[Rfam]
RNA sequence: CCUCUGGAAAGCGGGGACUCACGUCCCCCGCCGAAGGUGAAAGCCCGCCGCGCAGGCGGGUGAAGCUCUCAGGCGCCGAUGACAGAGG
Number, nucleotide and partner (000 for none) at each position: 001c088002c087003u086004c085005u084006g083007g000008a000009a000010a000011g000012c000013g028014g027015g026016g025017a000018c000019u000020c000021a000022c000023g000024u000025c016026c015027c014028c013029c000030g074031c073032c072033g070034a069035a000036g000037g068038u000039g066040a000041a000042a000043g061044c060045c059046c058047g057048c056049c000050g000051c000052g000053c000054a000055g000056g048057c047058g046059g045060g044061u043062g000063a000064a000065g000066c039067u000068c037069u034070c033071a000072g032073g031074c030075g000076c000077c000078g000079a000080u000081g000082a000083c006084a005085g004086a003087g002088g001
Shown here is an 88-nucleotide RNA from Actinomadura madurae, a member of the family "Glycine riboswitch aptamer". On this family, see Mandal et al., Science 2004: "A glycine-dependent riboswitch that uses cooperative binding to control gene expression".